[Rfam]
RNA sequence: CCGGACGCCGAACCGGGUCCGGACCGGACAUCGAGGGCGCCGGUUCACGCGCCGGUGCCGCUCAUGUCCAGAUCGCUUCACAGGAGGAUUUGGAGAUGAGGA
Numbered sequence: 001c002c003g004g005a006c007g008c009c010g011a012a013c014c015g016g017g018u019c020c021g022g023a024c025c026g027g028a029c030a031u032c033g034a035g036g037g038c039g040c041c042g043g044u045u046c047a048c049g050c051g052c053c054g055g056u057g058c059c060g061c062u063c064a065u066g067u068c069c070a071g072a073u074c075g076c077u078u079c080a081c082a083g084g085a086g087g088a089u090u091u092g093g094a095g096a097u098g099a100g101g102a
Base pairs, nucleotide, nucleotide: 001022002021003020004019005018006017008016009015036059037058038057039056040055041054042053043052044051061100062099063098064097065096068093069092070091071090072089073088074087076086077085078084

Background
The family of this 102-nucleotide RNA sequence from Sphingomonas taxi is "Repression of heat shock gene expression (ROSE) element". A search with the family's covariance model found it, with a score of 55 bits. This family represents a 5' UTR cis-regulatory element found in heat shock mRNAs and is known as the ROSE (repression of heat shock gene expression) element. The ROSE element is a negative regulator of heat shock gene expression. The secondary structure is thought to be regulated by temperature. This regulation blocks access to the ribosome binding site under normal conditions. During heat shock however, the structure changes freeing the ribosome binding site and allowing expression to occur.